[Rfam]
Nucleotides: 196
Base pairs, nucleotide, nucleotide: 018075019074020073031065032064033063034062035061036060038059039058043057044056046055047054110187115184116183132175133174134173135172137171139169141167142166145165146164147162148161149160150159151158
Number, partner (000 for none) and nucleotide at each position: 001000u002000a003000a004000u005000c006000a007000a008000a009000a010000a011000g012000u013000a014000c015000a016000g017000g018075g019074g020073g021000u022000a023000u024000u025000u026000g027000c028000c029000a030000c031065g032064g033063c034062g035061a036060u037000u038059u039058a040000a041000u042000g043057u044056a045000u046055a047054u048000a049000a050000u051000c052000a053000a054047g055046u056044u057043a058039u059038a060036a061035u062034c063033g064032u065031u066000g067000c068000c069000a070000u071000u072000u073020u074019c075018u076000a077000a078000a079000a080000a081000g082000a083000a084000u085000a086000u087000g088000a089000u090000c091000u092000u093000u094000a095000a096000c097000c098000a099000c100000c101000c102000g103000a104000g105000a106000u107000a108000g109000a110187u111000a112000a113000a114000c115184u116183u117000a118000c119000u120000c121000c122000c123000g124000g125000a126000u127000a128000g129000g130000a131000a132175g133174u134173u135172c136000g137171a138000u139169g140000u141167c142166c143000g144000u145165g146164u147162g148161u149160c150159u151158c152000u153000u154000u155000a156000u157000u158151g159150a160149g161148g162147c163000g164146a165145u166142g167141g168000u169139c170000u171137u172135g173134a174133a175132u176000g177000u178000c179000g180000a181000u182000a183116g184115a185000u186000g187110g188000g189000a190000u191000a192000c193000a194000g195000c196000u